[Rfam]
RNA: GA-cis RNA
Organism: bacterium D16-54
RNA sequence: UUAAUAAAGAAGGAAAAGGUAAAGUGGUUUUAAGAUACCUUCUGACAAUUUGCCGCUGAACAGAUGUGAGGGGCAUUACUGAAA
Number, nucleotide and partner (000 for none) at each position: 001u000002u000003a000004a000005u000006a000007a000008a043009g042010a041011a040012g039013g038014a000015a000016a028017a000018g000019g000020u000021a000022a000023a000024g000025u000026g000027g000028u016029u000030u000031u000032a000033a000034g000035a000036u000037a000038c013039c012040u011041u010042c009043u008044g000045a000046c000047a000048a000049u000050u000051u000052g074053c073054c072055g000056c071057u070058g000059a000060a067061c066062a000063g000064a000065u000066g061067u060068g000069a000070g057071g056072g054073g053074c052075a000076u000077u000078a000079c000080u000081g000082a000083a000084a000